[Rfam]
RNA sequence: CCUGAAUGUUAUGCAGUUGUGCAACAGUUGUCCAUUAGCACUAAUGGACAACUGUUGCACAACUGCAUAACAUUCGGG
Numbered sequence: 001c002c003u004g005a006a007u008g009u010u011a012u013g014c015a016g017u018u019g020u021g022c023a024a025c026a027g028u029u030g031u032c033c034a035u036u037a038g039c040a041c042u043a044a045u046g047g048a049c050a051a052c053u054g055u056u057g058c059a060c061a062a063c064u065g066c067a068u069a070a071c072a073u074u075c076g077g078g
Base pairs, nucleotide, nucleotide: 001078002077003076004075005074006073007072010069011068012067013066014065015064016063017062018061019060024055025054026053027052028051029050030049
Description
A member of the RNA family "mir-252 microRNA precursor family" from Aquarana catesbeiana, 78 nucleotides long. A reference for the family is Li et al. (2009), "Direct sequencing and expression analysis of a large number of miRNAs in Aedes aegypti and a multi-species survey of novel mosquito miRNAs", BMC Genomics. The family is grouped with related families in Rfam's "mir-252 microRNA precursor family". The organism belongs to Aquarana, within Eukaryota. The match comes from Rfam's covariance-model search (49 bits).